[Rfam]
RNA sequence: GACACUUUAGUGAAGAUCUCACAGUAAACCAGAGUUGGGAUGUGAGAUCUGAUGUAAAAUGUGUGUU
Number, nucleotide and partner (000 for none) at each position: 001g067002a066003c065004a064005c063006u000007u000008u000009a000010g000011u000012g000013a000014a000015g049016a048017u047018c046019u045020c044021a043022c042023a041024g000025u000026a000027a000028a000029c038030c037031a036032g000033a000034g000035u000036u031037g030038g029039g000040a000041u023042g022043u021044g020045a019046g018047a017048u016049c015050u000051g000052a000053u000054g000055u000056a000057a000058a000059a000060u000061g000062u000063g005064u004065g003066u002067u001
Source information:
This 67-nucleotide RNA sequence from Amphiprion percula belongs to the Rfam family "Selenocysteine insertion sequence 1". The incorporation of selenocysteine into a protein sequence is directed by an in-frame UGA codon (usually a stop codon) within the coding region of the mRNA. Selenoprotein mRNAs contain a conserved secondary structure in the 3' UTR that is required for the distinction of UGA stop from UGA selenocysteine. The selenocysteine insertion sequence (SECIS) is around 60 nt in length and adopts a hairpin structure which is sufficiently well-defined and conserved to act as a computational screen for selenoprotein genes. Lineage of the source: Eukaryota > Vertebrata > Gnathostomata > Euteleosteomorpha > Amphiprion. It scores 35 bits against the family's covariance model.